[Rfam]
RNA sequence: CCCACACCCAGUCCAAGAACUCUGCUGCCUGUAGCAGGUAAUUUAACAGUGGUGUGCACAACAAAGGGGCUUUGUCACCUUGGGGGGCUGUGUGGUGCCCCCCCCAGAGUAGACUGGGAGGUUGCAUAGUC
Number, nucleotide and partner (000 for none) at each position: 001c000002c000003c056004a055005c054006a053007c052008c051009c000010a000011g000012u000013c000014c000015a000016a000017g000018a042019a000020c000021u038022c037023u036024g035025c034026u033027g000028c000029c000030u000031g000032u000033a026034g025035c024036a023037g022038g021039u000040a000041a000042u018043u000044u000045a000046a000047c000048a000049g000050u000051g008052g007053u006054g005055u004056g003057c000058a000059c000060a000061a000062c000063a000064a000065a000066g000067g000068g123069g122070c121071u120072u119073u118074g000075u000076c000077a000078c000079c109080u108081u107082g103083g102084g101085g100086g099087g098088c097089u000090g000091u000092g000093u000094g000095g000096u000097g088098c087099c086100c085101c084102c083103c082104c000105c000106a000107g081108a080109g079110u000111a000112g000113a000114c000115u000116g000117g000118g073119a072120g071121g070122u069123u068124g000125c000126a000127u000128a000129g000130u000131c000
Rfam assigns this 131-nucleotide RNA sequence from Rattus norvegicus to the family "Small nucleolar RNA SNORA68". The match comes from Rfam's covariance-model search (58 bits). Its family is annotated with RNA processing and nucleolus in the Gene Ontology. On this family, see Ganot et al., Genes Dev 1997: "The family of box ACA small nucleolar RNAs is defined by an evolutionarily conserved secondary structure and ubiquitous sequence elements essential for RNA accumulation". Rfam describes the family as follows. U68 is a member of the H/ACA class of small nucleolar RNAs (snoRNAs) which act as guides in the the modification of uridines to pseudouridines.